[Rfam]
RNA sequence: AAUAAGAUCAUUUUUCGUUUUUCCGUAUCCAACAUUUGACCAUUCGUUUUAUUUGAAAAAAAAUUACGAUUAAUAUUUUUGUUGUUACUAGAUGAUAAAACAUGAAUAAUACUUUAUCCGUGACUAAUUAUUUUAAGUUUUUAUACAACUUUUUCAAAUAAGACGAAUGAUCAAACGUUGGAUACGGAAAAAC
Numbered sequence: 001a002a003u004a005a006g007a008u009c010a011u012u013u014u015u016c017g018u019u020u021u022u023c024c025g026u027a028u029c030c031a032a033c034a035u036u037u038g039a040c041c042a043u044u045c046g047u048u049u050u051a052u053u054u055g056a057a058a059a060a061a062a063a064u065u066a067c068g069a070u071u072a073a074u075a076u077u078u079u080u081g082u083u084g085u086u087a088c089u090a091g092a093u094g095a096u097a098a099a100a101c102a103u104g105a106a107u108a109a110u111a112c113u114u115u116a117u118c119c120g121u122g123a124c125u126a127a128u129u130a131u132u133u134u135a136a137g138u139u140u141u142u143a144u145a146c147a148a149c150u151u152u153u154u155c156a157a158a159u160a161a162g163a164c165g166a167a168u169g170a171u172c173a174a175a176c177g178u179u180g181g182a183u184a185c186g187g188a189a190a191a192a193c
Stems, first nucleotide, its partner, number of pairs: 028182006035175005041169012

A member of the RNA family "MIR812 microRNA precursor family" from Oryza brachyantha, 193 nucleotides long. The match comes from Rfam's covariance-model search (139 bits). The family has 22 seed sequences and 57,451 matches in Rfam 15.1.